A member of the RNA family "U4 spliceosomal RNA" from Rhizopus delemar, 136 nucleotides long. Rfam links the family to the GO terms U4 snRNP and spliceosomal tri-snRNP complex assembly.
RNA sequence: AUUCUUGUGCUAGGGCAAAACCACGAAAGUGAGGUUCAUACUGAUUCUGGUUUAUUGCUGGUUGAAAACUACUACCAAUGCCCGUCUGCAGUGCUCUUCGGGGCGCGGCAGCAAUUUUUUGAAGGCUCAGUAGGGC
Dot-bracket structure: ..................(((((.(((.....(((....)))..))))))))...............................(.((((.((((((....)))))).)))))............((((....))))

The sequence is in the family's curated seed alignment. Taxonomically the source falls in Rhizopus delemar (Eukaryota, Mucoromycota, Mucoromycotina, Rhizopodaceae). About the family: U4 small nuclear RNA (U4 snRNA) is a component of the major U2-dependent spliceosome.